[Rfam]
RNA sequence: GUCAGGAACCUCACGCCUCAAGGCGGAGGCUUGUUGCGGCAAGCCUGAACCUGACCAGUCUUGGUCUUGGAAGAGAGACUCCGUUCGGGGAGAAAAUAGGUACGGCGGGGUGCAUGCCAGCUCCGCCCUCUACGGUCAAUCAUUAAACAGGUGGACGAGGUCAAGCCAGUGUGGUUGACGUCAAACCUUCUCGAACAUUGACGAGGCACCCAUUAC
Dot-bracket structure: ((((((...(((...((....)).).))((((((....)))))).....))))))..(((..(((((........)))))..((((((((((.......((..((((((((...[[[[.))))))))....)).(((((((((...((.(((.((.....))..))).))))))))))).......))))))))))...)))..]]]]........

A member of the RNA family "HNH endonuclease-associated RNA and ORF (HEARO) RNA" from Dictyobacter aurantiacus, 216 nucleotides long. The source organism's lineage runs through Bacteria, Chloroflexota, Ktedonobacteria, Dictyobacteraceae and Dictyobacter. The family's RNA type in Rfam is non-coding RNA gene. The family has 139 seed sequences and 952 matches in Rfam 15.1. The literature on the family includes a 2009 paper in Nature by Weinberg et al., "Exceptional structured noncoding RNAs revealed by bacterial metagenome analysis". It scores 125 bits against the family's covariance model.